[Rfam]
RNA sequence: CGACGUCACGUCGGGAGAGAUCGGCCGCUUCUGCGAGGAAGAGGGCUGGCGCCGAAGGAGCAACCGCCCCGGAAACUCUCAGGCAAACGGACCGCGUGACUGGG
Number, nucleotide and partner (000 for none) at each position: 001c000002g000003a000004c000005g000006u099007c098008a097009c096010g095011u000012c094013g093014g092015g000016a000017g000018a000019g000020a000021u049022c048023g047024g046025c045026c044027g000028c000029u000030u000031c000032u000033g000034c000035g000036a000037g000038g000039a000040a000041g000042a000043g000044g026045g025046c024047u023048g022049g021050c000051g084052c083053c082054g080055a079056a000057g000058g078059a077060g076061c000062a000063a000064c072065c071066g000067c000068c000069c000070c000071g065072g064073a000074a000075a000076c060077u059078c058079u055080c054081a000082g053083g052084c051085a000086a000087a000088c000089g000090g000091a000092c014093c013094g012095c010096g009097u008098g007099a006100c000101u000102g000103g000104g000
RNA: Glycine riboswitch aptamer
Organism: Tardiphaga sp.